[Rfam]
The record is a 335-nucleotide sequence from Mycolicibacterium sediminis, which matches "Mycobacterium smegmatis small RNA 1" in Rfam. It scores 218 bits against the family's covariance model. Mycobacterium smegmatis small RNA 1 is highly expressed during stationary phase of growth. Ms1 RNA directly interacts with RNA polymerase (RNAP), but in a different way than 6S, which is present in other bacteria. Ms1 does not require the presence of the main sigma factor for RNAP interaction. There is evidence that Ms1 RNA may function similar to 6S RNA in M. smegmatis which does not have 6S RNA. Pairs were carried over by alignment from the consensus structure, which was predicted with CMfinder. Lineage of the source: Bacteria > Bacillati > Mycobacteriales > Mycobacterium > Mycobacterium (subgen. Mycolicibacterium).

RNA sequence: ACGGAAGCUUGGCAAGGCCAAGAUCGCACCGGAGGAGAAGGUACGGUCUCCCGAGUCAAGCUGCCUAGCACGGAUUUCGGCACCCACGCCACGGAUUUCGGCACCCACGCGGAGCACAUGCCGCGAUAUGGCAAAAGCGUUGUGGGCCUGCGGAACCGGGAAGAGCGAGCGACGUGUCGACCUCUUGGGUGAGGACGCCGAGCGAAGCGCAUCACGGGAACGCCGAGGCCACCCACACAACCCACCGAGCACGCUUGGUAACCGGCGUCCGUGCUAGCGGGCGGCGAGCCGAGUCACAUCUCGAAUGUGAGUCGGAUCGUCGCCCGCUCUUACUU
Numbered sequence: 001a002c003g004g005a006a007g008c009u010u011g012g013c014a015a016g017g018c019c020a021a022g023a024u025c026g027c028a029c030c031g032g033a034g035g036a037g038a039a040g041g042u043a044c045g046g047u048c049u050c051c052c053g054a055g056u057c058a059a060g061c062u063g064c065c066u067a068g069c070a071c072g073g074a075u076u077u078c079g080g081c082a083c084c085c086a087c088g089c090c091a092c093g094g095a096u097u098u099c100g101g102c103a104c105c106c107a108c109g110c111g112g113a114g115c116a117c118a119u120g121c122c123g124c125g126a127u128a129u130g131g132c133a134a135a136a137g138c139g140u141u142g143u144g145g146g147c148c149u150g151c152g153g154a155a156c157c158g159g160g161a162a163g164a165g166c167g168a169g170c171g172a173c174g175u176g177u178c179g180a181c182c183u184c185u186u187g188g189g190u191g192a193g194g195a196c197g198c199c200g201a202g203c204g205a206a207g208c209g210c211a212u213c214a215c216g217g218g219a220a221c222g223c224c225g226a227g228g229c230c231a232c233c234c235a236c237a238c239a240a241c242c243c244a245c246c247g248a249g250c251a252c253g254c255u256u257g258g259u260a261a262c263c264g265g266c267g268u269c270c271g272u273g274c275u276a277g278c279g280g281g282c283g284g285c286g287a288g289c290c291g292a293g294u295c296a297c298a299u300c301u302c303g304a305a306u307g308u309g310a311g312u313c314g315g316a317u318c319g320u321c322g323c324c325c326g327c328u329c330u331u332a333c334u335u
Stems, first nucleotide, its partner, number of pairs: 003065002006062007016052002021049002025045002028042003066276009098265004105258003109254003114250002119133004139241006145230005150223003156217003160213002165210003170204002173200002178197002181194004277327011289315003